[Rfam]
RNA sequence: GCCAGAGGCUUUGAAAGCCUCCAGAUCAUCGCGAAGAACUUCAACAUGAUCUGUGUCUUACCAGCCCACAAGGCCGUUCGACGAGGUUGCGACUGGAACGAGGUUGUCCUGAGGGACGGGGAAGCGUAACGAUCAACUGCUGUGUCGCCCCCAUCGAAGCUCUUCGAUAAGCGAUUCUGUCAGUAC
Numbered sequence: 001g002c003c004a005g006a007g008g009c010u011u012u013g014a015a016a017g018c019c020u021c022c023a024g025a026u027c028a029u030c031g032c033g034a035a036g037a038a039c040u041u042c043a044a045c046a047u048g049a050u051c052u053g054u055g056u057c058u059u060a061c062c063a064g065c066c067c068a069c070a071a072g073g074c075c076g077u078u079c080g081a082c083g084a085g086g087u088u089g090c091g092a093c094u095g096g097a098a099c100g101a102g103g104u105u106g107u108c109c110u111g112a113g114g115g116a117c118g119g120g121g122a123a124g125c126g127u128a129a130c131g132a133u134c135a136a137c138u139g140c141u142g143u144g145u146c147g148c149c150c151c152c153a154u155c156g157a158a159g160c161u162c163u164u165c166g167a168u169a170a171g172c173g174a175u176u177c178u179g180u181c182a183g184u185a186c
Base pairs, nucleotide, nucleotide: 005021006020007019008018009017010016011015025050026049027048028047031045033042034041035040052135053134055133056132057131064074065073066072076130077129081127082126083125109121110120146173147172148171153168154167155166156165157164158163
Shown here is a 186-nucleotide sequence from Pseudomonas sp. HAR-UPW-AIA-41, a member of the family "sRNA regulator of biofilms A". On this family, see Taylor et al., PLoS One 2017: "A novel small RNA is important for biofilm formation and pathogenicity in Pseudomonas aeruginosa". Pairs were carried over by alignment from the consensus structure, which was predicted with R-scape. It is annotated as a small RNA.